[Rfam]
RNA sequence: AUUGCAUGGUAAGCGCCAGAACCCGGUUUACCCGGGUUGACGAGGAGGGAGUUAUCGAAAAUUUCGGCGGGUGCUCCCCGGUCGAGUCACGACCGUCAAAGGUACUACAAAUCCUGUGGGUAACUACAGGGACAAAGCGUACCGGGUGACUGGG
Numbered sequence: 001a002u003u004g005c006a007u008g009g010u011a012a013g014c015g016c017c018a019g020a021a022c023c024c025g026g027u028u029u030a031c032c033c034g035g036g037u038u039g040a041c042g043a044g045g046a047g048g049g050a051g052u053u054a055u056c057g058a059a060a061a062u063u064u065c066g067g068c069g070g071g072u073g074c075u076c077c078c079c080g081g082u083c084g085a086g087u088c089a090c091g092a093c094c095g096u097c098a099a100a101g102g103u104a105c106u107a108c109a110a111a112u113c114c115u116g117u118g119g120g121u122a123a124c125u126a127c128a129g130g131g132a133c134a135a136a137g138c139g140u141a142c143c144g145g146g147u148g149a150c151u152g153g154g
Stems, first nucleotide, its partner, number of pairs: 020038007047078005055067004079095006101143005113130007